Rfam assigns this 154-nucleotide sequence from Microthlaspi erraticum to the family "Small nucleolar RNA snoR136". Pairs were carried over by alignment from the consensus structure, which was predicted with mfold. For this family Rfam cites "Mining small RNA sequencing data: a new approach to identify small nucleolar RNAs in Arabidopsis" (Chen and Wu, Nucleic Acids Res, 2009). The family's RNA type in Rfam is H/ACA-box small nucleolar RNA. It scores 126 bits against the family's covariance model.
RNA sequence: GUGGCUUUUACAUGAUAUAAAAAUUCAUGCUUUGAAUAAAUUUUCAUGUGAAGCUUGUUUAUUGAAUGUAUUAGCCUACAGAAAAUUUAGUUUCCCUCGCUAUCCUGUUCGUCAAUUCCGAUGAUGUUACUUAGGACGUCGGGUAACAAUAUCU
Numbered sequence: 001g002u003g004g005c006u007u008u009u010a011c012a013u014g015a016u017a018u019a020a021a022a023a024u025u026c027a028u029g030c031u032u033u034g035a036a037u038a039a040a041u042u043u044u045c046a047u048g049u050g051a052a053g054c055u056u057g058u059u060u061a062u063u064g065a066a067u068g069u070a071u072u073a074g075c076c077u078a079c080a081g082a083a084a085a086u087u088u089a090g091u092u093u094c095c096c097u098c099g100c101u102a103u104c105c106u107g108u109u110c111g112u113c114a115a116u117u118c119c120g121a122u123g124a125u126g127u128u129a130c131u132u133a134g135g136a137c138g139u140c141g142g143g144u145a146a147c148a149a150u151a152u153c154u
Stems, first nucleotide, its partner, number of pairs: 001079002003076003009070005016064002019059002026057002029054005036049003090147003094143003098138002103136005112124003